Shown here is a 271-nucleotide RNA from Pseudomonas taeanensis, a member of the family "rne-II RNA". It scores 243 bits against the family's covariance model. The family's consensus secondary structure is taken from published work.
[Rfam]
RNA sequence: AUACGUGUAGGGUGGAGAUGUACAACUGCUGGUCUGCGUAGCAAUUAGCUUUACCAAGACGCUUUAUCUCGUCCGCUACCAGCAAUUGAUUCCUCCUCCUGACUUAGUGCUUUCUGUCACAACAGCGAGCAGGAGACGUCCGUCGCGGCCCAGCCCAAUUGGCUGACCGUCGCUUGACACUGAAACGCUUUACGACCGUUUCUGACGCGCCUGACACCGACCCUGAGAGUCGUGUGUGCCGAACGCCGCUUCCGGAAGCACCGGAAACCGA
Numbered sequence: 001a002u003a004c005g006u007g008u009a010g011g012g013u014g015g016a017g018a019u020g021u022a023c024a025a026c027u028g029c030u031g032g033u034c035u036g037c038g039u040a041g042c043a044a045u046u047a048g049c050u051u052u053a054c055c056a057a058g059a060c061g062c063u064u065u066a067u068c069u070c071g072u073c074c075g076c077u078a079c080c081a082g083c084a085a086u087u088g089a090u091u092c093c094u095c096c097u098c099c100u101g102a103c104u105u106a107g108u109g110c111u112u113u114c115u116g117u118c119a120c121a122a123c124a125g126c127g128a129g130c131a132g133g134a135g136a137c138g139u140c141c142g143u144c145g146c147g148g149c150c151c152a153g154c155c156c157a158a159u160u161g162g163c164u165g166a167c168c169g170u171c172g173c174u175u176g177a178c179a180c181u182g183a184a185a186c187g188c189u190u191u192a193c194g195a196c197c198g199u200u201u202c203u204g205a206c207g208c209g210c211c212u213g214a215c216a217c218c219g220a221c222c223c224u225g226a227g228a229g230u231c232g233u234g235u236g237u238g239c240c241g242a243a244c245g246c247c248g249c250u251u252c253c254g255g256a257a258g259c260a261c262c263g264g265a266a267a268c269c270g271a
Base pairs, nucleotide, nucleotide: 014096015095016094017093023088024087025086027084028083029082030081031080032079036076037075038074040050041049042048058073059072060071061070097134098133099132100131101130137207138206139205140204142178143177144176145173146172147171148170151165152164153163154162155161182202183201184200185199186198187197214237215236216235217234218232219231220230221229248268250266251265252264253263254262